[Rfam]
mir-263 microRNA precursor family: an 81-nucleotide RNA from Ladona fulva. Pairs were carried over by alignment from the consensus structure, which was predicted with RNAalifold. The source organism's lineage runs through Eukaryota, Bilateria, Mandibulata, Libellulidae and Ladona. The literature on the family includes a 2009 paper in BMC Genomics by Li et al., "Direct sequencing and expression analysis of a large number of miRNAs in Aedes aegypti and a multi-species survey of novel mosquito miRNAs". The match comes from Rfam's covariance-model search (60 bits). The family is grouped with related families in Rfam's "mir-182 clan".

RNA sequence: CGGAAACUCUAAAUGGCACUGGAAGAAUUCACGGGGAUUUAUUAACUUCCUGUGGUUCCUCGGUGCUAUAGAGAGUGAUAG
Numbered sequence: 001c002g003g004a005a006a007c008u009c010u011a012a013a014u015g016g017c018a019c020u021g022g023a024a025g026a027a028u029u030c031a032c033g034g035g036g037a038u039u040u041a042u043u044a045a046c047u048u049c050c051u052g053u054g055g056u057u058c059c060u061c062g063g064u065g066c067u068a069u070a071g072a073g074a075g076u077g078a079u080a081g
Stems, first nucleotide, its partner, number of pairs: 003079001006076005013069006020062003025057002029055006